This 115-nucleotide RNA sequence from Ruminococcus sp. CAG:624 belongs to the Rfam family "FMN riboswitch aptamer (RFN element)". The match comes from Rfam's covariance-model search (122 bits).

[Rfam]
RNA sequence: UAAUAUCUUCAGGGCAGGGUGUAAUUCCCUACCGGUGGUAAAGCCCACGAACCUUUUGGUAUGAUUCGGUGAAAUUCCGAAGCCGACAGUAAAGUCUGGAUGAAAGAAGAUGUAU
Numbered sequence: 001u002a003a004u005a006u007c008u009u010c011a012g013g014g015c016a017g018g019g020u021g022u023a024a025u026u027c028c029c030u031a032c033c034g035g036u037g038g039u040a041a042a043g044c045c046c047a048c049g050a051a052c053c054u055u056u057u058g059g060u061a062u063g064a065u066u067c068g069g070u071g072a073a074a075u076u077c078c079g080a081a082g083c084c085g086a087c088a089g090u091a092a093a094g095u096c097u098g099g100a101u102g103a104a105a106g107a108a109g110a111u112g113u114a115u
Stems, first nucleotide, its partner, number of pairs: 003113008017029003031095002033085002035048004043083002053059001065081005087098003
Dot-bracket structure: ..((((((((......(((.......))).[[((((((....[[))))....(.....).....(((((.......)))))]])).(((....]]))).......))))))))..